[Rfam]
RNA sequence: GGGCGAUGACGAUGUUAUCAGUGAAAGGUCUCGUUCGUCGUAAGGGCUGAUCCGCCUUGCCGACCAACCUGAUAUAUCACCACCCAUAUUCCGAGUCC
Numbered sequence: 001g002g003g004c005g006a007u008g009a010c011g012a013u014g015u016u017a018u019c020a021g022u023g024a025a026a027g028g029u030c031u032c033g034u035u036c037g038u039c040g041u042a043a044g045g046g047c048u049g050a051u052c053c054g055c056c057u058u059g060c061c062g063a064c065c066a067a068c069c070u071g072a073u074a075u076a077u078c079a080c081c082a083c084c085c086a087u088a089u090u091c092c093g094a095g096u097c098c
Stems, first nucleotide, its partner, number of pairs: 001098004049057001

Small nucleolar RNA Z43: a 98-nucleotide RNA sequence from Nelumbo nucifera.
On this family, see Chen et al., Nucleic Acids Res 2003: "The high diversity of snoRNAs in plants: identification and comparative study of 120 snoRNA genes from Oryza sativa".
Taxonomically the source falls in Nelumbo (Eukaryota, Viridiplantae, Spermatophyta, Nelumbonaceae).